[Rfam]
RNA: bablM sRNA
RNA sequence: GUAUCUAGAUAAUUCAAUCGCAGGUUGACCCAAGAAUCUUUUUAGAGUCUAAUUUAUUUUUAUAAAUGA
Numbered sequence: 001g002u003a004u005c006u007a008g009a010u011a012a013u014u015c016a017a018u019c020g021c022a023g024g025u026u027g028a029c030c031c032a033a034g035a036a037u038c039u040u041u042u043u044a045g046a047g048u049c050u051a052a053u054u055u056a057u058u059u060u061u062a063u064a065a066a067u068g069a
Stems, first nucleotide, its partner, number of pairs: 014028005033050003037046003
Dot-bracket structure: .............(((((.....)))))....(((.(((....))).)))...................